[Rfam]
Background
The family of this 58-nucleotide sequence from Cryobacterium cheniae is "msiK RNA". The family's RNA type in Rfam is cis-regulatory element. The base pairs follow the family's consensus structure, which is taken from published work. It scores 66 bits against the family's covariance model. NCBI's taxonomy places the organism under Bacteria, Bacillati, Actinomycetes, Micrococcales, Cryobacterium.
RNA sequence: CGUAGUAACCCAUCACAACGGAUCGUCCGGCACGUACCUGCCGGUGAAGGAGAAAACA
Numbered sequence: 001c002g003u004a005g006u007a008a009c010c011c012a013u014c015a016c017a018a019c020g021g022a023u024c025g026u027c028c029g030g031c032a033c034g035u036a037c038c039u040g041c042c043g044g045u046g047a048a049g050g051a052g053a054a055a056a057c058a
Stems, first nucleotide, its partner, number of pairs: 009050002013047003027044006